[Rfam]
RNA sequence: UUAAUGUUUCUUGCUCAAAUGAGUAUUCCAACUGCCACUUCUCUCCGAUGCUUAUAAUGCCACUUUUCGCAUUAUAUUUCUAGCUAUCUGCUAGACCUGGUACUGCGAUACUCAUCUGAGCAAGCAACGUUAA
Numbered sequence: 001u002u003a004a005u006g007u008u009u010c011u012u013g014c015u016c017a018a019a020u021g022a023g024u025a026u027u028c029c030a031a032c033u034g035c036c037a038c039u040u041c042u043c044u045c046c047g048a049u050g051c052u053u054a055u056a057a058u059g060c061c062a063c064u065u066u067u068c069g070c071a072u073u074a075u076a077u078u079u080c081u082a083g084c085u086a087u088c089u090g091c092u093a094g095a096c097c098u099g100g101u102a103c104u105g106c107g108a109u110a111c112u113c114a115u116c117u118g119a120g121c122a123a124g125c126a127a128c129g130u131u132a133a
Stems, first nucleotide, its partner, number of pairs: 004130005010124008019115009029105002
A member of the RNA family "MIR828 microRNA precursor family" from Nelumbo nucifera, 133 nucleotides long.
Its family is annotated with miRNA-mediated post-transcriptional gene silencing and RISC complex in the Gene Ontology.
The literature on the family includes a 2010 paper in Plant Cell by Ma et al., "Arabidopsis lyrata small RNAs: transient MIRNA and small interfering RNA loci within the Arabidopsis genus".
The family has 16 seed sequences and 204 matches in Rfam 15.1.
A search with the family's covariance model found it, with a score of 75 bits.
Taxonomically the source falls in Nelumbo (Eukaryota, Embryophyta, Tracheophyta, Euphyllophyta).